[Rfam]
RNA: Alphaproteobacterial sRNA ar9
RNA sequence: AUAACGAGAGGACGACGAAAAAUCGUUCUCCUACGCGGUCAAGUCUUGGGAGGAUGCGAUCUAGGCGCGAUACUCGCUGCCGCCGGCUACCGGAAAGCAGAUCGGACGCGUUAAAAAUUGCAAGGCCUCUGGCCUUGCAUUUUUUU
Numbered sequence: 001a002u003a004a005c006g007a008g009a010g011g012a013c014g015a016c017g018a019a020a021a022a023u024c025g026u027u028c029u030c031c032u033a034c035g036c037g038g039u040c041a042a043g044u045c046u047u048g049g050g051a052g053g054a055u056g057c058g059a060u061c062u063a064g065g066c067g068c069g070a071u072a073c074u075c076g077c078u079g080c081c082g083c084c085g086g087c088u089a090c091c092g093g094a095a096a097g098c099a100g101a102u103c104g105g106a107c108g109c110g111u112u113a114a115a116a117a118u119u120g121c122a123a124g125g126c127c128u129c130u131g132g133c134c135u136u137g138c139a140u141u142u143u144u145u146u
Stems, first nucleotide, its partner, number of pairs: 003145002010028006034110004043055004058103005064081003067077003083093003119139008